About this RNA:
This 102-nucleotide sequence from Pararhizobium antarcticum belongs to the Rfam family "ybhL leader". The organism belongs to Pararhizobium, within Bacteria. A reference for the family is Corbino et al. (2005), "Evidence for a second class of S-adenosylmethionine riboswitches and other regulatory RNA motifs in alpha-proteobacteria", Genome Biol. Gene Ontology term of the family: regulation of gene expression. From the family's description: This family is a putative regulatory RNA structure that is found upstream of an uncharacterized membrane protein in alpha-proteobacteria.
[Rfam]
RNA sequence: CAGGCAUGCUGAAGCCCCGCAGCGGCGCCUGGGAAGCGAAGACGACGUGUUUCAGGCAUGUCUCCCGUCCGCACCUGACACCGUAAACCAACCGGGGCUUGA
Numbered sequence: 001c002a003g004g005c006a007u008g009c010u011g012a013a014g015c016c017c018c019g020c021a022g023c024g025g026c027g028c029c030u031g032g033g034a035a036g037c038g039a040a041g042a043c044g045a046c047g048u049g050u051u052u053c054a055g056g057c058a059u060g061u062c063u064c065c066c067g068u069c070c071g072c073a074c075c076u077g078a079c080a081c082c083g084u085a086a087a088c089c090a091a092c093c094g095g096g097g098c099u100u101g102a
Stems, first nucleotide, its partner, number of pairs: 012100008023083003030077004